About this RNA:
A member of the RNA family "MIR2619 microRNA precursor family" from Medicago truncatula, 172 nucleotides long. Its family is annotated with miRNA-mediated post-transcriptional gene silencing and RISC complex in the Gene Ontology. Lineage of the source: Eukaryota > Spermatophyta > Fabaceae > Hologalegina > Medicago. The match comes from Rfam's covariance-model search (122 bits).

RNA sequence: AAACCGUCCCCUAAGUUUUGUAACUGUAGCAAUUUUGGCCCCCCAAGACCAAUUUUUGGUAAAAAAAAAAAACACGUGGCACCUCAAUUAGGGUGCCAUGUCAGCGUAGACUGAGUCAAAUUUGGCCUUGGGGGGCCAAAACUGCCACAAAUGCAAAAUUUAGGGGCGGUUU
Numbered sequence: 001a002a003a004c005c006g007u008c009c010c011c012u013a014a015g016u017u018u019u020g021u022a023a024c025u026g027u028a029g030c031a032a033u034u035u036u037g038g039c040c041c042c043c044c045a046a047g048a049c050c051a052a053u054u055u056u057u058g059g060u061a062a063a064a065a066a067a068a069a070a071a072a073c074a075c076g077u078g079g080c081a082c083c084u085c086a087a088u089u090a091g092g093g094u095g096c097c098a099u100g101u102c103a104g105c106g107u108a109g110a111c112u113g114a115g116u117c118a119a120a121u122u123u124g125g126c127c128u129u130g131g132g133g134g135g136c137c138a139a140a141a142c143u144g145c146c147a148c149a150a151a152u153g154c155a156a157a158a159u160u161u162a163g164g165g166g167c168g169g170u171u172u
Stems, first nucleotide, its partner, number of pairs: 001172002004169005012162011025149003029145003033141013074101002077098007